[Rfam]
RNA sequence: AGAGGUCCACAAGUUUGAGGCCACAGCAGAAGCACCCAUGGCGCGGCCCUGUUAGAUUCCAGUGAAUCUAAAUUCUGCU
Numbered sequence: 001a002g003a004g005g006u007c008c009a010c011a012a013g014u015u016u017g018a019g020g021c022c023a024c025a026g027c028a029g030a031a032g033c034a035c036c037c038a039u040g041g042c043g044c045g046g047c048c049c050u051g052u053u054a055g056a057u058u059c060c061a062g063u064g065a066a067u068c069u070a071a072a073u074u075c076u077g078c079u
Stems, first nucleotide, its partner, number of pairs: 017049001019048004025079007032044002053070007

This 79-nucleotide RNA from Alligator sinensis belongs to the Rfam family "Mammalian CPEB3 ribozyme". The organism belongs to Alligator, within Eukaryota. The match comes from Rfam's covariance-model search (48 bits).